[Rfam]
RNA sequence: GGCGGCGACUGCGACUGGCGGCAGGAGGAUGGGCAACCAUCGGGGAGCGCCUCGCGGGGGUCGUCCGCCUGGGCCUCCGUG
Numbered sequence: 001g002g003c004g005g006c007g008a009c010u011g012c013g014a015c016u017g018g019c020g021g022c023a024g025g026a027g028g029a030u031g032g033g034c035a036a037c038c039a040u041c042g043g044g045g046a047g048c049g050c051c052u053c054g055c056g057g058g059g060g061u062c063g064u065c066c067g068c069c070u071g072g073g074c075c076u077c078c079g080u081g
Stems, first nucleotide, its partner, number of pairs: 003054003010049003015044002017069005029040004058076005